Source information:
Shown here is a 111-nucleotide sequence from Actinorhabdospora filicis, a member of the family "TPP riboswitch aptamer (THI element)".
RNA sequence: CCAGAAACCCACGGGUGUCCAGUGCACUGGGCUGAGAUUGCGGCAUGCAGCCGCGGACCGUCGAACCUGAUCCGGGUCAUGCCGGCGCAGGGAGAGGAGCCAUCGCCAAUG
Dot-bracket structure: .......((.((((.((((((......))))).......((((.......)))))..))))....((((..((((......))))..))))....))..............
Source information
The source organism's lineage runs through Bacteria, Actinomycetes, Micromonosporales, Micromonosporaceae and Actinorhabdospora. The match comes from Rfam's covariance-model search (58 bits).